[Rfam]
RNA sequence: UUGAAGACUUAAAGAUUUCAACUUGCAGACUUGAAGACUUCAAUUUGCAGACUUGAAGAAUUUGAAGACUUCAACU
Numbered sequence: 001u002u003g004a005a006g007a008c009u010u011a012a013a014g015a016u017u018u019c020a021a022c023u024u025g026c027a028g029a030c031u032u033g034a035a036g037a038c039u040u041c042a043a044u045u046u047g048c049a050g051a052c053u054u055g056a057a058g059a060a061u062u063u064g065a066a067g068a069c070u071u072c073a074a075c076u
Stems, first nucleotide, its partner, number of pairs: 001074006009065005016058005024049004031043005

This 76-nucleotide sequence from Solanum commersonii belongs to the Rfam family "MIR8024 microRNA precursor family". Its family is annotated with miRNA-mediated post-transcriptional gene silencing and RISC complex in the Gene Ontology. The organism belongs to Solanum, within Eukaryota. The match comes from Rfam's covariance-model search (63 bits).